The family of this 83-nucleotide RNA from Taxus chinensis is "Small nucleolar RNA U61". It scores 57 bits against the family's covariance model. Pairs were carried over by alignment from the consensus structure, which was predicted with WAR. The family's RNA type in Rfam is C/D-box small nucleolar RNA.
RNA sequence: UCGCGGUGAUGAAAGUUAGCUGAUUGCCUUAGAAGCCUUCGUUUCGGUGAAGGCAACAAUACCCUCUAAGAAGUUCUGAGCGA
Dot-bracket structure: ((((...........................................................................))))